[Rfam]
RNA sequence: UGCCAGCGUUCAAGUCAAGGCUCCUUCCGCAUCUCGUGUGCGUUUUUCCUCAUGGAAAGAGACUGUUACAACUCUGGCAGAUCAAAGUCGGCCCGCCGCUAGACCCCGUUAUGGACGUCUAGUAGAUUGCUUGCCGUCUUGGUUUGCUUUCAUAAGGGUUCGAGCGUGUUUCGUUUGAGUUGAGUACCUCUCCCGCUCAUCUGAGUGGCUCAUGGAGGCUCUCUUAGUUAUGAUUCGCACAUCU
Numbered sequence: 001u002g003c004c005a006g007c008g009u010u011c012a013a014g015u016c017a018a019g020g021c022u023c024c025u026u027c028c029g030c031a032u033c034u035c036g037u038g039u040g041c042g043u044u045u046u047u048c049c050u051c052a053u054g055g056a057a058a059g060a061g062a063c064u065g066u067u068a069c070a071a072c073u074c075u076g077g078c079a080g081a082u083c084a085a086a087g088u089c090g091g092c093c094c095g096c097c098g099c100u101a102g103a104c105c106c107c108g109u110u111a112u113g114g115a116c117g118u119c120u121a122g123u124a125g126a127u128u129g130c131u132u133g134c135c136g137u138c139u140u141g142g143u144u145u146g147c148u149u150u151c152a153u154a155a156g157g158g159u160u161c162g163a164g165c166g167u168g169u170u171u172c173g174u175u176u177g178a179g180u181u182g183a184g185u186a187c188c189u190c191u192c193c194c195g196c197u198c199a200u201c202u203g204a205g206u207g208g209c210u211c212a213u214g215g216a217g218g219c220u221c222u223c224u225u226a227g228u229u230a231u232g233a234u235u236c237g238c239a240c241a242u243c244u
Stems, first nucleotide, its partner, number of pairs: 003077004018064002021061003025057003028042005088163004093158001098123007106114002129147002133143004166238003171233004182223003187218004193208006
The record is a 244-nucleotide RNA from Aureobasidium melanogenum, which matches "Small nucleolar RNA snR191" in Rfam. The organism belongs to Aureobasidium, within Eukaryota. Its Rfam clan is "SNORA74 clan". A search with the family's covariance model found it, with a score of 53 bits.